[Rfam]
RNA sequence: CAGCAGGAGACAGACCUGCCGGGGAAAGAGUCAGAAGCCCCGUAGCUUGGAUAGCGGGAAGGCGGGUAACCAAUAUCCUGAAGCCUAUCGACAAGACUUUCCUUGGUGAAGUGCGAGUCACCGGGCCGUAACGAAA
Dot-bracket structure: ...................(((((.............))))).......((((((((((....((....))....)))))....)))))......(((((.......)))))(((...........))).......
This 136-nucleotide RNA from Nitrosomonas communis belongs to the Rfam family "Group II catalytic intron D1-D4-4".
Rfam 15.1 lists 840 matches to the family in 506 species.
A search with the family's covariance model found it, with a score of 110 bits.
The pairing is the family consensus, mapped onto this sequence.
Rfam's curators write: Group II introns are found in rRNA, tRNA and mRNA of organelles in fungi, plants and protists, and also in mRNA in bacteria.